Rfam assigns this 94-nucleotide RNA sequence from Acetomicrobium mobile to the family "Selenocysteine transfer RNA". Its Rfam clan is "tRNA clan". NCBI's taxonomy places the organism under Bacteria, Synergistota, Synergistia, Acetomicrobium, Acetomicrobium mobile.

RNA sequence: GGAGGCGAUUGGUCGCUGGUGCGGCCCCCAGACUUCAAAUCUGGUGUGGGUCAGUAAGGGCUGGCCCGGGUGGGUUCGAUUCCCAUUCGCCUCC
Numbered sequence: 001g002g003a004g005g006c007g008a009u010u011g012g013u014c015g016c017u018g019g020u021g022c023g024g025c026c027c028c029c030a031g032a033c034u035u036c037a038a039a040u041c042u043g044g045u046g047u048g049g050g051u052c053a054g055u056a057a058g059g060g061c062u063g064g065c066c067c068g069g070g071u072g073g074g075u076u077c078g079a080u081u082c083c084c085a086u087u088c089g090c091c092u093c094c
Stems, first nucleotide, its partner, number of pairs: 001094008011026006028044005047068007071085004